[Rfam]
Nucleotides: 113
Base pairs, nucleotide, nucleotide: 005109006108007107008106011103012102013101015099016098017097018096019095021093022092023091024090027087028086029085030084031083033081034080035079
Number, partner (000 for none) and nucleotide at each position: 001000g002000u003000g004000a005109g006108a007107a008106u009000c010000a011103c012102a013101g014000u015099g016098c017097g018096g019095u020000u021093c022092u023091c024090c025000u026000c027087u028086g029085g030084c031083a032000u033081g034080g035079a036000g037000g038000c039000c040000a041000a042000u043000g044000u045000a046000g047000c048000a049000a050000g051000c052000g053000u054000u055000g056000g057000a058000g059000a060000a061000u062000g063000u064000g065000c066000a067000g068000u069000g070000c071000u072000a073000u074000u075000g076000c077000c078000a079035u080034c081033c082000c083031u084030g085029c086028c087027a088000a089000a090024g091023g092022a093021g094000a095019a096018u097017u098016g099015c100000c101013c102012u103011g104000c105000c106008a107007u108006u109005c110000g111000g112000u113000a
Source information: mir-399 microRNA precursor family: a 113-nucleotide RNA sequence from Panicum virgatum. Rfam describes the family as follows. mir-399 was identified in both Arabidopsis thaliana and Oryza sativa computationally and was later experimentally verified. mir-399 is thought to target mRNAs coding for a phosphatase transporter. The mature sequence is excised from the 3' arm of the hairpin. The family has 13 seed sequences and 2,396 matches in Rfam 15.1.